glycine-GGAnGA riboswitch aptamer: a 190-nucleotide RNA from Desulfosporosinus sp. HMP52. About the family: glycine-GGAnGA riboswitch is a variant of glycine riboswitch that have in common a U69A change. Taxonomically the source falls in Desulfosporosinus (Bacteria, Bacillota, Eubacteriales, Desulfitobacteriaceae).
RNA sequence: CCGGAUGAAACUGGCAGGAGAGAUCUGAAAUACAGACGCCGAAGGAGAAAUUCCCUGAAUUCGCUUUUCAGGGAGGGAAGCUCUCAGGCAAAAGUACUGCUAGAAGACGGGACUCUGGAGAGUUUCUUGCAAAAGAACACCAAAGGGGAAGCCGAGAUACGGCGAAUCUCUCAGGUUAAAGGACAGAGAA
Numbered sequence: 001c002c003g004g005a006u007g008a009a010a011c012u013g014g015c016a017g018g019a020g021a022g023a024u025c026u027g028a029a030a031u032a033c034a035g036a037c038g039c040c041g042a043a044g045g046a047g048a049a050a051u052u053c054c055c056u057g058a059a060u061u062c063g064c065u066u067u068u069c070a071g072g073g074a075g076g077g078a079a080g081c082u083c084u085c086a087g088g089c090a091a092a093a094g095u096a097c098u099g100c101u102a103g104a105a106g107a108c109g110g111g112a113c114u115c116u117g118g119a120g121a122g123u124u125u126c127u128u129g130c131a132a133a134a135g136a137a138c139a140c141c142a143a144a145g146g147g148g149a150a151g152c153c154g155a156g157a158u159a160c161g162g163c164g165a166a167u168c169u170c171u172c173a174g175g176u177u178a179a180a181g182g183a184c185a186g187a188g189a190a
Stems, first nucleotide, its partner, number of pairs: 001110003011103007022037001024036004038089003044085001045083003051075009113188005122138001124137004139176003145172001147169003

Rfam links the family to the GO term glycine biosynthetic process.